[Rfam]
RNA sequence: GGUCAAGAGCGCCAGCGUCAAGCCCCGGCUCGCUGGCCGGCAACCCUCCAACCGCGGUGGGGUGCCCCGGGUGAGGACCAGGCCGCACAGUCGUCCCCGGACGGUCUGUGGCAAGCGCGGACC
Numbered sequence: 001g002g003u004c005a006a007g008a009g010c011g012c013c014a015g016c017g018u019c020a021a022g023c024c025c026c027g028g029c030u031c032g033c034u035g036g037c038c039g040g041c042a043a044c045c046c047u048c049c050a051a052c053c054g055c056g057g058u059g060g061g062g063u064g065c066c067c068c069g070g071g072u073g074a075g076g077a078c079c080a081g082g083c084c085g086c087a088c089a090g091u092c093g094u095c096c097c098c099g100g101a102c103g104g105u106c107u108g109u110g111g112c113a114a115g116c117g118c119g120g121a122c123c
Base pairs, nucleotide, nucleotide: 001079002078003077004076009038011037012036013035014034015033016032021030022029039066040065041064044062045061046060048057049056082112083111084110085109086108087107
A member of the RNA family "SAM (S-adenosyl methionine) riboswitch aptamer" from Paraconexibacter algicola, 123 nucleotides long. The base pairs follow the family's consensus structure, which is taken from published work. For this family Rfam cites "The aptamer core of SAM-IV riboswitches mimics the ligand-binding site of SAM-I riboswitches" (Weinberg et al., RNA, 2008). NCBI's taxonomy places the organism under Bacteria, Bacillati, Actinomycetota, Solirubrobacterales, Paraconexibacter. SAM-IV is a mRNA element that regulates gene expression via direct sensing of S-adenosylmethionine (SAM or AdoMet).